[Rfam]
RNA sequence: GCAAGCCUAUGAUGGUUAGUUAUCCCUGUCUGAAAACCUCGGCUGAGGGGAAACCCGUCUAUUCUGAGGCUUUG
Dot-bracket structure: ..(((((............................................................)))))..
Numbered sequence: 001g002c003a004a005g006c007c008u009a010u011g012a013u014g015g016u017u018a019g020u021u022a023u024c025c026c027u028g029u030c031u032g033a034a035a036a037c038c039u040c041g042g043c044u045g046a047g048g049g050g051a052a053a054c055c056c057g058u059c060u061a062u063u064c065u066g067a068g069g070c071u072u073u074g
Stems, first nucleotide, its partner, number of pairs: 003072005